RNA sequence: UGCUAUACUAGAGCACGUCUCCCAAAAGUGGGAACCGGUUUUGGGACAAAGACAUGCUUGAAAAUAAAACUCUAAAGCGCGUUGACUCUAAUCGUAUCCAGGCAACGCGCUUUAGAGUGCAGACGAAAUGGACCGGCAUGUUUCUAUCUGUAUUCGAUAUCUAUAAGA
Numbered sequence: 001u002g003c004u005a006u007a008c009u010a011g012a013g014c015a016c017g018u019c020u021c022c023c024a025a026a027a028g029u030g031g032g033a034a035c036c037g038g039u040u041u042u043g044g045g046a047c048a049a050a051g052a053c054a055u056g057c058u059u060g061a062a063a064a065u066a067a068a069a070c071u072c073u074a075a076a077g078c079g080c081g082u083u084g085a086c087u088c089u090a091a092u093c094g095u096a097u098c099c100a101g102g103c104a105a106c107g108c109g110c111u112u113u114a115g116a117g118u119g120c121a122g123a124c125g126a127a128a129u130g131g132a133c134c135g136g137c138a139u140g141u142u143u144c145u146a147u148c149u150g151u152a153u154u155c156g157a158u159a160u161c162u163a164u165a166a167g168a
Stems, first nucleotide, its partner, number of pairs: 013057003017053004022045002025042005031036001060164001062162001064160003069118016127154004133150001136149001138147003
RNA: Brucella sRNA CI27